[Rfam]
The family of this 85-nucleotide RNA sequence from Cupriavidus basilensis is "Pseudomonas sRNA P9".
A search with the family's covariance model found it, with a score of 45 bits.
The organism belongs to Cupriavidus, within Bacteria.
About the family: This small RNA (sRNA) was computationally identified in the genome of the opportunistic pathogen Pseudomonas aeruginosa and its expression verified by northern blot analysis. P9 appears to be conserved in several Pseudomonas species in addition to Bordetella spp. In both Pseudomonas and Bordetella spp P9 appears to be located upstream of a predicted threonine dehydratase gene. P9 has a predicted Rho independent terminator at the 3' end but the function of P9 is unknown.
The base pairs follow the family's consensus structure, which was predicted with RNAalifold.

RNA sequence: UCGAUUAUUCGCACCAUCCCAGGGAUGGUGGGUUAGCGCACGUGGACUGAGCACACACAGCGACCCGCCCAACGAGGCGGGUUUU
Numbered sequence: 001u002c003g004a005u006u007a008u009u010c011g012c013a014c015c016a017u018c019c020c021a022g023g024g025a026u027g028g029u030g031g032g033u034u035a036g037c038g039c040a041c042g043u044g045g046a047c048u049g050a051g052c053a054c055a056c057a058c059a060g061c062g063a064c065c066c067g068c069c070c071a072a073c074g075a076g077g078c079g080g081g082u083u084u085u
Stems, first nucleotide, its partner, number of pairs: 012030006062083008
On this family, see Livny et al., Nucleic Acids Res 2006: "Identification of 17 Pseudomonas aeruginosa sRNAs and prediction of sRNA-encoding genes in 10 diverse pathogens using the bioinformatic tool sRNAPredict2".